Shown here is a 72-nucleotide RNA sequence from Gilsonvirus comrade, a member of the family "tRNA". The match comes from Rfam's covariance-model search (54 bits). The family's consensus secondary structure is taken from published work.
[Rfam]
RNA sequence: GGUCCUUUAGCUUAGUUGGUAAAGCGCGGGUGUGAAGUACCUGAGUCUGCGGUUCGAUUCCGUGAUGGACCA
Numbered sequence: 001g002g003u004c005c006u007u008u009a010g011c012u013u014a015g016u017u018g019g020u021a022a023a024g025c026g027c028g029g030g031u032g033u034g035a036a037g038u039a040c041c042u043g044a045g046u047c048u049g050c051g052g053u054u055c056g057a058u059u060c061c062g063u064g065a066u067g068g069a070c071c072a
Stems, first nucleotide, its partner, number of pairs: 001071005007065001010025004027043005048064005
The source organism's lineage runs through Viruses, Duplodnaviria, Heunggongvirae, Loccivirinae and Gilsonvirus comrade.